Shown here is a 92-nucleotide sequence from Rossellomorea vietnamensis, a member of the family "Selenocysteine transfer RNA". It scores 55 bits against the family's covariance model. Taxonomically the source falls in Rossellomorea (Bacteria, Bacillota, Bacilli, Bacillaceae). Gene Ontology term of the family: triplet codon-amino acid adaptor activity.
[Rfam]
RNA sequence: GGGGCUGAUUGUUGAGCUGGUGCUUGCCUUAGUCUUCAAAACUUUAGGGAGGCGCGUGCCGUCUCCGCUGGGUUCGAUUCCCAGGCAGUCCC
Number, nucleotide and partner (000 for none) at each position: 001g092002g091003g090004g089005c088006u087007g086008a000009u084010u000011g000012u000013u026014g025015a024016g023017c022018u000019g000020g000021u000022g017023c016024u015025u014026g013027c000028c000029u000030u000031a043032g042033u041034c000035u000036u000037c000038a000039a000040a000041a033042c032043u031044u000045u000046a000047g000048g066049g065050a064051g063052g062053c000054g000055c000056g000057u000058g000059c000060c000061g000062u052063c051064u050065c049066c048067g000068c000069u083070g082071g081072g080073u000074u000075c000076g000077a000078u000079u000080c072081c071082c070083a069084g009085g000086c007087a006088g005089u004090c003091c002092c001